[Rfam]
RNA sequence: GAUGCUAAACUCUAGUCGAAAUAAUCGUUAUGGACCCGGGGGCAGUGCCCGGCGCCUCCACCACUCCAAGGUUCGUCACUCAAGGGAUUGCGAUCCCGACGGACGCUGUGGGGGCGAAACAGGAUCGACAUGCGUGGUAAAGGGCUAGACUGUAUCCGGCAUUGUACCGCCGUCAUCGGGCUAUAUUUACACAUGCCAACGACAACGUUGAGUAUGCCGCUGCCGCUUAA
Numbered sequence: 001g002a003u004g005c006u007a008a009a010c011u012c013u014a015g016u017c018g019a020a021a022u023a024a025u026c027g028u029u030a031u032g033g034a035c036c037c038g039g040g041g042g043c044a045g046u047g048c049c050c051g052g053c054g055c056c057u058c059c060a061c062c063a064c065u066c067c068a069a070g071g072u073u074c075g076u077c078a079c080u081c082a083a084g085g086g087a088u089u090g091c092g093a094u095c096c097c098g099a100c101g102g103a104c105g106c107u108g109u110g111g112g113g114g115c116g117a118a119a120c121a122g123g124a125u126c127g128a129c130a131u132g133c134g135u136g137g138u139a140a141a142g143g144g145c146u147a148g149a150c151u152g153u154a155u156c157c158g159g160c161a162u163u164g165u166a167c168c169g170c171c172g173u174c175a176u177c178g179g180g181c182u183a184u185a186u187u188u189a190c191a192c193a194u195g196c197c198a199a200c201g202a203c204a205a206c207g208u209u210g211a212g213u214a215u216g217c218c219g220c221u222g223c224c225g226c227u228u229a230a
Stems, first nucleotide, its partner, number of pairs: 001156005014146004026134003030131003036052005053116009157172004
Dot-bracket structure: (((((........((((........(((.(((...(((((.......)))))(((((((((..............................................)))))))))............))))))........)))).....)))))((((........))))..........................................................
A member of the RNA family "permuted transfer-messenger RNA" from Insolitispirillum peregrinum, 230 nucleotides long. About the family: Bacterial tmRNA, also known as 10Sa RNA or SsrA, is named for its dual tRNA and mRNA-like properties. Its role is to liberate the mRNA from a stalled ribosome. To accomplish this part of the tmRNA is used as a reading frame that ends in a translation stop signal. The broken mRNA is replaced in the ribosome by the tmRNA and translation of the tmRNA leads to addition of a proteolysis tag to the incomplete protein enabling recognition by a protease. The family's RNA type in Rfam is non-coding RNA gene.